Rfam assigns this 109-nucleotide sequence from Amborella trichopoda to the family "Small nucleolar RNA snoR99". Its family is annotated with nucleolus and RNA processing in the Gene Ontology. It is annotated as an H/ACA-box small nucleolar RNA. The source organism's lineage runs through Eukaryota, Streptophytina, Euphyllophyta, Amborellales and Amborella. Pairs were carried over by alignment from the consensus structure, which was predicted with WAR.
RNA sequence: UUGCCUCAGGGAUGAACCGGUCCCUGAUAUUUAAUCAAUGAUCCCAUUAGCUUCACUUUGUCAGCGAAGCUCAUUUUAUCUUCGCUGAUCAUUCAAAAUGGGAAUAUCC
Numbered sequence: 001u002u003g004c005c006u007c008a009g010g011g012a013u014g015a016a017c018c019g020g021u022c023c024c025u026g027a028u029a030u031u032u033a034a035u036c037a038a039u040g041a042u043c044c045c046a047u048u049a050g051c052u053u054c055a056c057u058u059u060g061u062c063a064g065c066g067a068a069g070c071u072c073a074u075u076u077u078a079u080c081u082u083c084g085c086u087g088a089u090c091a092u093u094c095a096a097a098a099u100g101g102g103a104a105u106a107u108c109c
Stems, first nucleotide, its partner, number of pairs: 042103006060089008